[Rfam]
RNA sequence: CGAGGCACCUCUGGAAAGCAGCCGUGCAAUGCGGCUCACCGACGGGGCAAGCGAAUCGUCACGAGACCGACGGUUCGCGAAACUCUCAGGUACAGCGACAGAGCGGGGAGG
Numbered sequence: 001c002g003a004g005g006c007a008c009c010u011c012u013g014g015a016a017a018g019c020a021g022c023c024g025u026g027c028a029a030u031g032c033g034g035c036u037c038a039c040c041g042a043c044g045g046g047g048c049a050a051g052c053g054a055a056u057c058g059u060c061a062c063g064a065g066a067c068c069g070a071c072g073g074u075u076c077g078c079g080a081a082a083c084u085c086u087c088a089g090g091u092a093c094a095g096c097g098a099c100a101g102a103g104c105g106g107g108g109a110g111g
Base pairs, nucleotide, nucleotide: 006106009103010102011101012100013099020036021035022034023033038091039090040089041087042086045085046084047083051078052077053076054075055074056073057072058071059070060069
Source information
Shown here is a 111-nucleotide RNA sequence from Mycobacterium simulans, a member of the family "Glycine riboswitch aptamer". The source organism's lineage runs through Bacteria, Actinomycetota, Actinomycetes, Mycobacteriaceae and Mycobacterium.